[Rfam]
RNA sequence: GUUCCCUGUGAUGGUUUAAUUCUAACCAUGCUAAUUCUGAUCACUUCAUGAUUGAAAACCUUUCAAUUGUAUCAUUUUCUGAGGGAACA
Numbered sequence: 001g002u003u004c005c006c007u008g009u010g011a012u013g014g015u016u017u018a019a020u021u022c023u024a025a026c027c028a029u030g031c032u033a034a035u036u037c038u039g040a041u042c043a044c045u046u047c048a049u050g051a052u053u054g055a056a057a058a059c060c061u062u063u064c065a066a067u068u069g070u071a072u073c074a075u076u077u078u079c080u081g082a083g084g085g086a087a088c089a
Stems, first nucleotide, its partner, number of pairs: 001088007

Overview: Small nucleolar RNA snoR53Y: an 89-nucleotide RNA from Nyssa sinensis. For this family Rfam cites "Multiple snoRNA gene clusters from Arabidopsis" (Brown et al., RNA, 2001). It scores 74 bits against the family's covariance model. It is annotated as a C/D-box small nucleolar RNA. Clan: snoR53 clan.